Record summary
The family of this 82-nucleotide RNA sequence from Sus scrofa is "mir-1179 microRNA precursor family". Gene Ontology terms of the family: miRNA-mediated post-transcriptional gene silencing and RISC complex. Pairs were carried over by alignment from the consensus structure, which was predicted with RNAalifold.

Nucleotides: 082
Stems, first nucleotide, its partner, number of pairs: 004079002007076004012071003015066009025056001027054009
Number, partner (000 for none) and nucleotide at each position: 001000c002000c003000a004079g005078a006000a007076a008075g009074g010073a011000a012071g013070a014069a015066g016065c017064a018063u019062u020061c021060u022059u023058u024000c025056a026000c027054u028053g029052g030051u031050u032049g033048g034047u035046g036000u037000g038000u039000a040000u041000u042000g043000c044000u045000u046035u047034g048033u049032u050031a051030a052029c053028c054027a055000a056025u057000g058023g059022g060021a061020g062019g063018a064017u065016g066015c067000c068000a069014u070013u071012u072000a073010u074009c075008c076007u077000c078005u079004u080000c081000u082000g